[Rfam]
RNA: Bacterial RNase P class A
RNA sequence: AGAGGAGGCGCAGGCGGUUGCGGAUAGUCGGGCUUCAAGGAAUUUUUUCUGAGGAGCCUUUAUCCGAGGAAAGUCCGGGCUUCCGAAAGAUCAGACCUGCUGGGUAACGCCCAGUGCGCGUGAGCGUGAGGAUAGUGCCACAGAAACAUACCGCCGAUGGAAAGGAUGAAGGGUGAAGGAGAAAUUGCCUUUUGCCUUUUGCCUUUCACAGGUAAGGGUGCAAGGGUGCGGUAAGAGCGCACCAGCAACGUCGAGAGGCGUUGGCUCGGUAAACCCCGGUUGGAAGCAAGGUCGAAGGAGCAAGGGUUGGUCUUUUUCCUGCUCCGGGUAGGGGUGGUUUCACUCCUGCGUAAUCCGCUAGAGGUGUCUGGUGACAGGCAUCCCAGAUAGAUAACUGCCCUCUUGGUGGAUUCCAUCAAGAGAACAGAACCCGGCUUAUGUCCGCCUCUUCCC
Numbered sequence: 001a002g003a004g005g006a007g008g009c010g011c012a013g014g015c016g017g018u019u020g021c022g023g024a025u026a027g028u029c030g031g032g033c034u035u036c037a038a039g040g041a042a043u044u045u046u047u048u049c050u051g052a053g054g055a056g057c058c059u060u061u062a063u064c065c066g067a068g069g070a071a072a073g074u075c076c077g078g079g080c081u082u083c084c085g086a087a088a089g090a091u092c093a094g095a096c097c098u099g100c101u102g103g104g105u106a107a108c109g110c111c112c113a114g115u116g117c118g119c120g121u122g123a124g125c126g127u128g129a130g131g132a133u134a135g136u137g138c139c140a141c142a143g144a145a146a147c148a149u150a151c152c153g154c155c156g157a158u159g160g161a162a163a164g165g166a167u168g169a170a171g172g173g174u175g176a177a178g179g180a181g182a183a184a185u186u187g188c189c190u191u192u193u194g195c196c197u198u199u200u201g202c203c204u205u206u207c208a209c210a211g212g213u214a215a216g217g218g219u220g221c222a223a224g225g226g227u228g229c230g231g232u233a234a235g236a237g238c239g240c241a242c243c244a245g246c247a248a249c250g251u252c253g254a255g256a257g258g259c260g261u262u263g264g265c266u267c268g269g270u271a272a273a274c275c276c277c278g279g280u281u282g283g284a285a286g287c288a289a290g291g292u293c294g295a296a297g298g299a300g301c302a303a304g305g306g307u308u309g310g311u312c313u314u315u316u317u318c319c320u321g322c323u324c325c326g327g328g329u330a331g332g333g334g335u336g337g338u339u340u341c342a343c344u345c346c347u348g349c350g351u352a353a354u355c356c357g358c359u360a361g362a363g364g365u366g367u368c369u370g371g372u373g374a375c376a377g378g379c380a381u382c383c384c385a386g387a388u389a390g391a392u393a394a395c396u397g398c399c400c401u402c403u404u405g406g407u408g409g410a411u412u413c414c415a416u417c418a419a420g421a422g423a424a425c426a427g428a429a430c431c432c433g434g435c436u437u438a439u440g441u442c443c444g445c446c447u448c449u450u451c452c453c
Base pairs, nucleotide, nucleotide: 001449002448003447004446005445007443008442010441011440012439013399014398015397016396017395018394019393021066022065023064024063025062026061027060071437072436073435075434076433077432078431079430080286081285082284083283094281095280096279098278099277100114101113102112103111104110115129116127117126118125119124130276131275135274136273137270138269139268151217152216153213154212155211158208159207160206161205225243226242227241228240229239230238245265246263247262248261249260250259251258252257290356291355297346298345299344300343363382364381365380366379367378368377369376370375